[Rfam]
RNA: Small nucleolar RNA SNORA73 family
Organism: Oreochromis niloticus
RNA sequence: CCGACAUGGACAUCCAGAGAGUUGCUCUCCUGGCUCUGUCCUGGUGGCGUAUGGGAGCGUAGCUCUGAGCCGAGACGUACAGUCCCGUUCCACAAUGUCGGACAGAAAGCUCUGUCCCUGGCUGCCGGCCAGUGAGGACGAGCGUCCUGCAUAUUCCUACAUCUUUCCAGAGUCCUUUGGGGCCAUUACUGGGGAGCUAAACCAUGCAGUGCACAGAC
Dot-bracket structure: ((((((((((((.(((.((((...))))..)))...)))))..((((.....(((((.((..(........)....)).)..))))...)))).))))))).............................................((((((..........((((((...((((....)))).......)))))).......)))))).........